Description:
A member of the RNA family "MIR2275 microRNA precursor family" from Papaver nudicaule, 95 nucleotides long. NCBI's taxonomy places the organism under Eukaryota, Embryophyta, Spermatophyta, Ranunculales, Papaver.
[Rfam]
RNA sequence: UUCUCGGAAGUGAGGAUUGGACAAAACUAAAUUGACAUUAUGUACUCAUUAUAUUACAAUCAAUUUGGUUUUCUCCAAUAUCUCAUAUCCGGCAA
Numbered sequence: 001u002u003c004u005c006g007g008a009a010g011u012g013a014g015g016a017u018u019g020g021a022c023a024a025a026a027c028u029a030a031a032u033u034g035a036c037a038u039u040a041u042g043u044a045c046u047c048a049u050u051a052u053a054u055u056a057c058a059a060u061c062a063a064u065u066u067g068g069u070u071u072u073c074u075c076c077a078a079u080a081u082c083u084c085a086u087a088u089c090c091g092g093c094a095a
Stems, first nucleotide, its partner, number of pairs: 004092005011085004016079006023072008032063002

It scores 68 bits against the family's covariance model. Rfam 15.1 lists 785 matches to the family in 111 species.